[Rfam]
RNA sequence: UGAUGGCUGUUCCUCUCACUGCUUGGAGCCCAGGCAGUGGGAUUUUGGUCCAUCAUAUACAGAACUGGCUUUCUUCACUCAGGGCACCAUGAGGAUGGGCUGGCUGUCCGUUAGUGCCUUCUGAUUUUUGCGGAGUCAAACAAUU
Numbered sequence: 001u002g003a004u005g006g007c008u009g010u011u012c013c014u015c016u017c018a019c020u021g022c023u024u025g026g027a028g029c030c031c032a033g034g035c036a037g038u039g040g041g042a043u044u045u046u047g048g049u050c051c052a053u054c055a056u057a058u059a060c061a062g063a064a065c066u067g068g069c070u071u072u073c074u075u076c077a078c079u080c081a082g083g084g085c086a087c088c089a090u091g092a093g094g095a096u097g098g099g100c101u102g103g104c105u106g107u108c109c110g111u112u113a114g115u116g117c118c119u120u121c122u123g124a125u126u127u128u129u130g131c132g133g134a135g136u137c138a139a140a141c142a143a144u145u
Stems, first nucleotide, its partner, number of pairs: 001055006008048001014042005020036004067137006079124005084117004093109005
Record summary
The family of this 145-nucleotide RNA from Castor canadensis is "Small nucleolar RNA SNORA79". Rfam's curators write: ACA65 (SNORA79) is a member of the H/ACA class of snoRNAs that guide the sites of modification of uridines to pseudouridines. This snoRNA was identified by computational screening and its expression in mouse experimentally verified by Northern blot and primer extension analysis. Rfam 15.1 lists 944 matches to the family in 375 species. A reference for the family is Schattner et al. (2006), "A computational screen for mammalian pseudouridylation guide H/ACA RNAs", RNA. The match comes from Rfam's covariance-model search (118 bits). Taxonomically the source falls in Castor (Eukaryota, Deuterostomia, Euteleostomi, Euarchontoglires).